[Rfam]
RNA sequence: GAAUGUGAAGGCGAUCUGGCUGCGACAUCUGUCACCCCAUUGAUCGCCAGGGUUGAUCUGGCUGGCCAGGCCGUGUCCCCUUCUUCUCUCACCGCUUCGGGUGCUUCCCUCCCGAAACUGCGCGCUCAGUCGAAGAGGACGACCUUUCCGGAUAGAGGAGAGGACCGUUCUUCGGUCAAGGGUAUACGAGUAGUUGCGCUUCCCUGCUAGAACCUCCAAACAAACUCUCAAGGUCUAUUUAUAGGAGAACGUAGGGUAGCCAAGCUUCCAAGACUCCAGACACAUCCCAGUGAGGCGCUGCAUGUGGCAGUCUGCACUUUUUG
Numbered sequence: 001g002a003a004u005g006u007g008a009a010g011g012c013g014a015u016c017u018g019g020c021u022g023c024g025a026c027a028u029c030u031g032u033c034a035c036c037c038c039a040u041u042g043a044u045c046g047c048c049a050g051g052g053u054u055g056a057u058c059u060g061g062c063u064g065g066c067c068a069g070g071c072c073g074u075g076u077c078c079c080c081u082u083c084u085u086c087u088c089u090c091a092c093c094g095c096u097u098c099g100g101g102u103g104c105u106u107c108c109c110u111c112c113c114g115a116a117a118c119u120g121c122g123c124g125c126u127c128a129g130u131c132g133a134a135g136a137g138g139a140c141g142a143c144c145u146u147u148c149c150g151g152a153u154a155g156a157g158g159a160g161a162g163g164a165c166c167g168u169u170c171u172u173c174g175g176u177c178a179a180g181g182g183u184a185u186a187c188g189a190g191u192a193g194u195u196g197c198g199c200u201u202c203c204c205u206g207c208u209a210g211a212a213c214c215u216c217c218a219a220a221c222a223a224a225c226u227c228u229c230a231a232g233g234u235c236u237a238u239u240u241a242u243a244g245g246a247g248a249a250c251g252u253a254g255g256g257u258a259g260c261c262a263a264g265c266u267u268c269c270a271a272g273a274c275u276c277c278a279g280a281c282a283c284a285u286c287c288c289a290g291u292g293a294g295g296c297g298c299u300g301c302a303u304g305u306g307g308c309a310g311u312c313u314g315c316a317c318u319u320u321u322u323g
Stems, first nucleotide, its partner, number of pairs: 001098003005092004010087002013083002018080002024077004029073001031071003035065002037061003042058004046053002106163002108158004112129001114127002118124001130152002137148003193265003199259002202256006214247004220242001222240003288323003292318001295315002297311005
A member of the RNA family "7SK RNA" from Pteropus alecto, 323 nucleotides long. From the family's description: 7SK was discovered as an abundant small nuclear RNA in the mid-70s but a possible function has only recently been suggested. Two independent studies have found that 7SK RNA binds the CDK9/cyclin T complex (known as elongation factor P-TEFb). P-TEFb activates transcription by phosphorylating the C-terminal domain of RNA polymerase II. This process is negatively regulated by the 7SK RNP. The secondary structure of 7SK RNA shown here was proposed by Wasserman and Steitz on the basis of chemical modification and enzymatic cleavage experiments. The match comes from Rfam's covariance-model search (298 bits). On this family, see Wassarman and Steitz, Mol Cell Biol 1991: "Structural analyses of the 7SK ribonucleoprotein (RNP), the most abundant human small RNP of unknown function". By type it is a non-coding RNA gene.